[Rfam]
This 307-nucleotide part of an RNA from Dimargaris verticillata belongs to the Rfam family "Eukaryotic large subunit ribosomal RNA". NCBI's taxonomy places the organism under Eukaryota, Kickxellomycotina, Dimargaritales, Dimargaritaceae, Dimargaris.
RNA sequence: GAGUCCAUCUUGUGUGCGAGUGGCAUAGUGGCAAGCUAUAACGCGCAAUGAAAGUGAAGCUCUGGCGGGCAGGUGCGCGGUUGCGCAUCCCCACCGCCGGGCGGGGCUCUCUGCGGGUGGCCUCAACUCCACCCGCUGCCUCGACUCGCAGCACACCGGAUGGGACCCGAAAGGUGGUGAUCUAUGCUUGGGCAGGGCGAAGCCAGUGGAAACUCUGGUGGAGGCUCGUAGAGGUUUUGACGUGCAAAUCAAUCUCGGGACCUGAGCAUAGGGGCGAAAGACUAAUCGAACCACCUAGUAGCUGGUU
Dot-bracket structure: ....((((((.((((((..(((..(((((.....)))))..)))...((....))........(((((...(((((........)))))....))))).((((((((..............................)))))).))....)))))).))))))..((.(...((((((...((((((((((((.((((...(((((.(....).)))))....))))...((((.((.((........))))))))..).))))))))))).((.......))......))))))......).))..